[Rfam]
RNA sequence: UCGUGCCUGGCUCCCUGUAUACCACAAGAAAACACCGAUCUCAUUAUGAAAUCGAUCGCUAGUGGUGUAUAGAGUAGUCAAGCAUGA
Numbered sequence: 001u002c003g004u005g006c007c008u009g010g011c012u013c014c015c016u017g018u019a020u021a022c023c024a025c026a027a028g029a030a031a032a033c034a035c036c037g038a039u040c041u042c043a044u045u046a047u048g049a050a051a052u053c054g055a056u057c058g059c060u061a062g063u064g065g066u067g068u069a070u071a072g073a074g075u076a077g078u079c080a081a082g083c084a085u086g087a
Stems, first nucleotide, its partner, number of pairs: 001087006008080005014074001016071009027060002